Rfam assigns this 83-nucleotide sequence from Salinibacillus xinjiangensis to the family "c-di-GMP-I riboswitch aptamer". A search with the family's covariance model found it, with a score of 72 bits.
[Rfam]
RNA sequence: CGUUCGAAAAGGCAAAAUCAUUGAAAAAUGAUGACGCAAAGCUAGAGGGGCUACGGUGUUAACUAUGCUCGCCAGCUACCGAA
Dot-bracket structure: ...........((...((((((....))))))...))..((((...(((((....((....))...)))..))))))......
Numbered sequence: 001c002g003u004u005c006g007a008a009a010a011g012g013c014a015a016a017a018u019c020a021u022u023g024a025a026a027a028a029u030g031a032u033g034a035c036g037c038a039a040a041g042c043u044a045g046a047g048g049g050g051c052u053a054c055g056g057u058g059u060u061a062a063c064u065a066u067g068c069u070c071g072c073c074a075g076c077u078a079c080c081g082a083a
Stems, first nucleotide, its partner, number of pairs: 012037002017032006040077004047073002049069003056063002
The base pairs follow the family's consensus structure, which is taken from published work. Lineage of the source: Bacteria > Bacillati > Bacilli > Caryophanales > Salinibacillus.